[Rfam]
RNA: Pseudomonas sRNA P9
RNA sequence: AGCAUUAUUACCGCCAUUAUCCACAUGGCGGGUCAGGCCACGAAAUAGUCCAGCAAAUUUCAAAGAACCCGCCUACGAGGCGGGUUCU
Numbered sequence: 001a002g003c004a005u006u007a008u009u010a011c012c013g014c015c016a017u018u019a020u021c022c023a024c025a026u027g028g029c030g031g032g033u034c035a036g037g038c039c040a041c042g043a044a045a046u047a048g049u050c051c052a053g054c055a056a057a058u059u060u061c062a063a064a065g066a067a068c069c070c071g072c073c074u075a076c077g078a079g080g081c082g083g084g085u086u087c088u
Stems, first nucleotide, its partner, number of pairs: 011031007065087009